[Rfam]
RNA sequence: ACUCCGGUUGAUCCUGCCGGACCUCACUGCUAUCGGGGGGAGACUAAGCCAUGCAAGUCUAGGCCCAUAGCCACCUGUGGGCCUGGCGUACGGCUCAGUAACACGUGGCCAACCUACCCUGAGGAGGCGGAUAACACCGGGAAACUGGUGCAUAAACCGCCAUAGGUGAGAGGAUCUGGAACGACCUCUCGCCGAAAGAUGUACACGGGGAUGCCUGUGUACAUGCCUCAGGAUGGGGCUGCGGCCCAUCAGGUAGUUGGUGGGGUAACGGCCCACCAAGCCUAUAACGGGUACGGGCCCUGAGAGGGGGAGCCCGGAGAUGGACUCUGAGACAAGAGUCCAGGCCCUACGGGGCGCAGCAGGCGCGAAACCUCCGCAAUGCGCUCACGCGUGACGGGGUCACCCCGAGUGCCACCCUCGUGGUGGCUUUUGCGCAGUGUAAAAAGCUGCGCGAAUAAGCGGGGGGCAAGACGGGUGUCAGCCGCCGCGGUAAUACCCGCUCCGCGAGUGGUGAGGACUAUUACUG
Numbered sequence: 001a002c003u004c005c006g007g008u009u010g011a012u013c014c015u016g017c018c019g020g021a022c023c024u025c026a027c028u029g030c031u032a033u034c035g036g037g038g039g040g041a042g043a044c045u046a047a048g049c050c051a052u053g054c055a056a057g058u059c060u061a062g063g064c065c066c067a068u069a070g071c072c073a074c075c076u077g078u079g080g081g082c083c084u085g086g087c088g089u090a091c092g093g094c095u096c097a098g099u100a101a102c103a104c105g106u107g108g109c110c111a112a113c114c115u116a117c118c119c120u121g122a123g124g125a126g127g128c129g130g131a132u133a134a135c136a137c138c139g140g141g142a143a144a145c146u147g148g149u150g151c152a153u154a155a156a157c158c159g160c161c162a163u164a165g166g167u168g169a170g171a172g173g174a175u176c177u178g179g180a181a182c183g184a185c186c187u188c189u190c191g192c193c194g195a196a197a198g199a200u201g202u203a204c205a206c207g208g209g210g211a212u213g214c215c216u217g218u219g220u221a222c223a224u225g226c227c228u229c230a231g232g233a234u235g236g237g238g239c240u241g242c243g244g245c246c247c248a249u250c251a252g253g254u255a256g257u258u259g260g261u262g263g264g265g266u267a268a269c270g271g272c273c274c275a276c277c278a279a280g281c282c283u284a285u286a287a288c289g290g291g292u293a294c295g296g297g298c299c300c301u302g303a304g305a306g307g308g309g310g311a312g313c314c315c316g317g318a319g320a321u322g323g324a325c326u327c328u329g330a331g332a333c334a335a336g337a338g339u340c341c342a343g344g345c346c347c348u349a350c351g352g353g354g355c356g357c358a359g360c361a362g363g364c365g366c367g368a369a370a371c372c373u374c375c376g377c378a379a380u381g382c383g384c385u386c387a388c389g390c391g392u393g394a395c396g397g398g399g400u401c402a403c404c405c406c407g408a409g410u411g412c413c414a415c416c417c418u419c420g421u422g423g424u425g426g427c428u429u430u431u432g433c434g435c436a437g438u439g440u441a442a443a444a445a446g447c448u449g450c451g452c453g454a455a456u457a458a459g460c461g462g463g464g465g466g467c468a469a470g471a472c473g474g475g476u477g478u479c480a481g482c483c484g485c486c487g488c489g490g491u492a493a494u495a496c497c498c499g500c501u502c503c504g505c506g507a508g509u510g511g512u513g514a515g516g517a518c519u520a521u522u523a524c525u526g
Base pairs, nucleotide, nucleotide: 004020005019006018007017008016022516023515024514025513026512027511028510029509030508031507033408034407035406036405037404038403040401041400042366048364049363050362052361053360054359057087058086059085061084062083063082064081065080066079067078068077069076070075094319095318096317104243105242106241107240108239109238110237113236114235118232119231120230121229122228123227124226126161127160128159129158135150136149137148138147139146140145166192167191168190169189170188171187172186173185175184176183199224200223201222202221203220204219205218206217207216208215209214245291246290247289252282253281254280257279258278259277260276261275262274263273264272294316295315296314297313298309299308300307301306321342322341323340324339325338326337344355345354346353347352372398374397375396376395380393381392382391383390384389411427412426413425414424415423416422432452433451434450435449436448437447438446459505460504461503462502463501464500472499473498474497475496481488482487

Archaeal small subunit ribosomal RNA: a 526-nucleotide part of an RNA from Candidatus Caldarchaeum subterraneum.
On this family, see Cannone et al., BMC Bioinformatics 2002: "The comparative RNA web (CRW) site: an online database of comparative sequence and structure information for ribosomal, intron, and other RNAs".
The family has 86 seed sequences and 709 matches in Rfam 15.1.
The organism belongs to Candidatus Caldarchaeum, within Archaea.